[Rfam]
RNA sequence: GGCCGGGUCACGUCCCCCCACCGGGACGCUUCUCUUCUGGAAGGGAGAGCCGC
Numbered sequence: 001g002g003c004c005g006g007g008u009c010a011c012g013u014c015c016c017c018c019c020a021c022c023g024g025g026a027c028g029c030u031u032c033u034c035u036u037c038u039g040g041a042a043g044g045g046a047g048a049g050c051c052g053c
Stems, first nucleotide, its partner, number of pairs: 011028006033048006
RNA: serC leader